[Rfam]
RNA sequence: CACGACCCUCCGCCGAGUCCGGUGCGCCCAUCGGGGCAGCCGGAGCCGGGGACCCACCGUUCUCCGGGGUGAAUCGGCCCGACCGCCGCACGCGGCAAGGGCCGUAGGGCAAACCUUCCGAAGCAUGCGCCCGAACCCGACAGCUAACUCGGUAGGCGGACCAUGGAAGGAGA
Numbered sequence: 001c002a003c004g005a006c007c008c009u010c011c012g013c014c015g016a017g018u019c020c021g022g023u024g025c026g027c028c029c030a031u032c033g034g035g036g037c038a039g040c041c042g043g044a045g046c047c048g049g050g051g052a053c054c055c056a057c058c059g060u061u062c063u064c065c066g067g068g069g070u071g072a073a074u075c076g077g078c079c080c081g082a083c084c085g086c087c088g089c090a091c092g093c094g095g096c097a098a099g100g101g102c103c104g105u106a107g108g109g110c111a112a113a114c115c116u117u118c119c120g121a122a123g124c125a126u127g128c129g130c131c132c133g134a135a136c137c138c139g140a141c142a143g144c145u146a147a148c149u150c151g152g153u154a155g156g157c158g159g160a161c162c163a164u165g166g167a168a169g170g171a172g173a
Base pairs, nucleotide, nucleotide: 011158012157013156014155018044019043020042021041022040023039045153046152047151048150049149050148055066067138068137069136075104076103077102078101079100080099107132108131109130110129
The record is a 173-nucleotide RNA sequence from Streptomyces scabiei, which matches "c-di-AMP riboswitch aptamer (ydaO/yuaA leader)" in Rfam. Its family is annotated with cyclic-di-AMP binding and regulation of gene expression in the Gene Ontology. The match comes from Rfam's covariance-model search (62 bits). The organism belongs to Streptomyces scabiei, within Bacteria.